[Rfam]
terC RNA: a 58-nucleotide RNA sequence from Sphingobium subterraneum.
RNA sequence: CUUGCGGGCCGGGCCCCUCUGGCGAUCGACAUGUCGAUCGUGAUGUCGGACCGCAUCG
Numbered sequence: 001c002u003u004g005c006g007g008g009c010c011g012g013g014c015c016c017c018u019c020u021g022g023c024g025a026u027c028g029a030c031a032u033g034u035c036g037a038u039c040g041u042g043a044u045g046u047c048g049g050a051c052c053g054c055a056u057c058g
Stems, first nucleotide, its partner, number of pairs: 006052002009049004022041008
By type it is a cis-regulatory element.
It scores 67 bits against the family's covariance model.
Taxonomically the source falls in Sphingobium (Bacteria, Pseudomonadati, Alphaproteobacteria, Sphingobiaceae).